RNA sequence: UGGCGCAGAUGGGGAAGUAGCGGUUCCUUGUAACCUGUAAUCCGCUAUAGCAGGGUCUAAAACCGUUGGAGGUCAUUUAUGGUCGAAAGCUGGUUAUAGGCGUUGUGUUGAUCAUGGGGCCCUUUUGCAACGAACAAGUUUGGUGAAACUCGUCAGGUCGGGAACGAAGCAGCGAUAGUCAGAAUUGUCGUGUGACAUUAGGCAACUCUGUGGGAGCAAAGUUUAUAAUAUGAGCACGGUUGUGAAUGUUCGAAUUCGGCUGCGCCU
Numbered sequence: 001u002g003g004c005g006c007a008g009a010u011g012g013g014g015a016a017g018u019a020g021c022g023g024u025u026c027c028u029u030g031u032a033a034c035c036u037g038u039a040a041u042c043c044g045c046u047a048u049a050g051c052a053g054g055g056u057c058u059a060a061a062a063c064c065g066u067u068g069g070a071g072g073u074c075a076u077u078u079a080u081g082g083u084c085g086a087a088a089g090c091u092g093g094u095u096a097u098a099g100g101c102g103u104u105g106u107g108u109u110g111a112u113c114a115u116g117g118g119g120c121c122c123u124u125u126u127g128c129a130a131c132g133a134a135c136a137a138g139u140u141u142g143g144u145g146a147a148a149c150u151c152g153u154c155a156g157g158u159c160g161g162g163a164a165c166g167a168a169g170c171a172g173c174g175a176u177a178g179u180c181a182g183a184a185u186u187g188u189c190g191u192g193u194g195a196c197a198u199u200a201g202g203c204a205a206c207u208c209u210g211u212g213g214g215a216g217c218a219a220a221g222u223u224u225a226u227a228a229u230a231u232g233a234g235c236a237c238g239g240u241u242g243u244g245a246a247u248g249u250u251c252g253a254a255u256u257c258g259g260c261u262g263c264g265c266c267u
Stems, first nucleotide, its partner, number of pairs: 002266005007058004011029006018022001034054005063259003067254001071251002074248002077245009091232002094228006103220001104218003112213008122201002126197002128192002131190003135187002139183006150175004158167003